[Rfam]
This 80-nucleotide sequence from Firmicutes bacterium CAG:102 belongs to the Rfam family "ZMP/ZTP riboswitch aptamer (pfl RNA motif)". The source organism's lineage runs through Bacteria, Bacillati and Bacillota. It scores 58 bits against the family's covariance model.
RNA sequence: AUAGGGUCAUAUGACUGACGGAAGUGGAGACAACCACAUGGAGUAUGACUAUUCGAAUGCCGACCGUCUGGGCGAUGAUG
Numbered sequence: 001a002u003a004g005g006g007u008c009a010u011a012u013g014a015c016u017g018a019c020g021g022a023a024g025u026g027g028a029g030a031c032a033a034c035c036a037c038a039u040g041g042a043g044u045a046u047g048a049c050u051a052u053u054c055g056a057a058u059g060c061c062g063a064c065c066g067u068c069u070g071g072g073c074g075a076u077g078a079u080g
Stems, first nucleotide, its partner, number of pairs: 003052001005050008015040001017068005024037004058074004